[Rfam]
RNA sequence: CAUACGGUGUUAGCUGAAAAAUAUGCUAAUUGCGGUAUGGCUUCAAAUUGAGGU
Numbered sequence: 001c002a003u004a005c006g007g008u009g010u011u012a013g014c015u016g017a018a019a020a021a022u023a024u025g026c027u028a029a030u031u032g033c034g035g036u037a038u039g040g041c042u043u044c045a046a047a048u049u050g051a052g053g054u
Stems, first nucleotide, its partner, number of pairs: 001039005007033002011028004015023001

This 54-nucleotide RNA from Pasteurella felis belongs to the Rfam family "L31-Gammaproteobacteria ribosomal protein leader". The family's RNA type in Rfam is cis-regulatory leader.